RNA sequence: CGUCAGCUAGCUUAUCAGACUGGUGUUGGCUUCUCAUGUUGUCAUGGCAACAGUGGUCUGUAGGCUGGCUGAAG
Dot-bracket structure: .......((((((((..(((((.(((((.(...............).))))).))))).)))))))).......
Numbered sequence: 001c002g003u004c005a006g007c008u009a010g011c012u013u014a015u016c017a018g019a020c021u022g023g024u025g026u027u028g029g030c031u032u033c034u035c036a037u038g039u040u041g042u043c044a045u046g047g048c049a050a051c052a053g054u055g056g057u058c059u060g061u062a063g064g065c066u067g068g069c070u071g072a073a074g
Stems, first nucleotide, its partner, number of pairs: 008067008018058005024052005030046001